[Rfam]
Notes: The record is a 168-nucleotide RNA from Streptomyces sp. WMMB 714, which matches "Streptomyces RNA 1601" in Rfam.

RNA sequence: AUCGACCGGCUGGAGAACAUCUCUUCAGCCCGCAAGUGGAGGCUCCGAACUCCCACCUGACGGUCCCCGGGACCGCGGGUCAACGGUCAGGCUGCGCCCCCGCGGAAUGUCGCGUCGGUGCUCCCGGUCUUUGAGGAGCCCCGCCUGUGUCCGUGAGGGGCUUUUUGU
Number, nucleotide and partner (000 for none) at each position: 001a000002u000003c000004g088005a087006c086007c085008g084009g000010c000011u000012g026013g025014a000015g000016a000017a000018c000019a000020u000021c000022u000023c000024u000025u013026c012027a000028g080029c079030c078031c077032g000033c059034a058035a000036g056037u055038g054039g053040a051041g050042g000043c000044u000045c000046c000047g000048a000049a000050c041051u040052c000053c039054c038055a037056c036057c000058u034059g033060a000061c075062g074063g073064u072065c071066c070067c000068c000069g000070g066071g065072a064073c063074c062075g061076c000077g031078g030079g029080u028081c000082a000083a000084c008085g007086g006087u005088c004089a000090g000091g000092c000093u000094g000095c000096g161097c160098c159099c158100c157101c000102g000103c153104g152105g151106a000107a000108u000109g000110u000111c149112g148113c147114g145115u000116c143117g142118g141119u000120g139121c138122u137123c136124c135125c000126g000127g000128u000129c000130u000131u000132u000133g000134a000135g124136g123137a122138g121139c120140c000141c118142c117143g116144c000145c114146u000147g113148u112149g111150u000151c105152c104153g103154u000155g000156a000157g100158g099159g098160g097161c096162u000163u000164u000165u000166u000167g000168u000
Pairs were carried over by alignment from the consensus structure. Taxonomically the source falls in Streptomyces (Bacteria, Bacillati, Actinomycetes, Streptomycetaceae). By type it is a small RNA. Identified by deep sequencing of transcriptome at the end of exponential growth phase. Appears longer on northern blot than sequencing transcript. Streptomyces specific.